[Rfam]
RNA: SAM riboswitch aptamer (S box leader)
RNA sequence: CUCUUAUUCAGAGUGAUGGAGAUACAAAGGAUCUGUGAAGUCACGGCAACCCCUCUUAUAUGUAGGAAGGUGCCAACCUGAGCGAGUAGUCGAACAAUAAGGG
Dot-bracket structure: ((((((((....(((((...(((......[)))......)))))((((.(((((.........)))..))))))....]...(((....)))...))))))))